[Rfam]
RNA sequence: CAUCGCCGAUCUGGAGAGAGGCCGCUUCGACGGCCCACCGAAGGGGCAAGCGGCCCGGCCAUGCCGGCGCCGCGCAAACUCUCAGGUAAAAGGACAGCGGGAGCG
Numbered sequence: 001c002a003u004c005g006c007c008g009a010u011c012u013g014g015a016g017a018g019a020g021g022c023c024g025c026u027u028c029g030a031c032g033g034c035c036c037a038c039c040g041a042a043g044g045g046g047c048a049a050g051c052g053g054c055c056c057g058g059c060c061a062u063g064c065c066g067g068c069g070c071c072g073c074g075c076a077a078a079c080u081c082u083c084a085g086g087u088a089a090a091a092g093g094a095c096a097g098c099g100g101g102a103g104c105g
Base pairs, nucleotide, nucleotide: 006100007099008098011097012096013095020035021034022033023032037087038086039085040083041082044081045080046079050075051074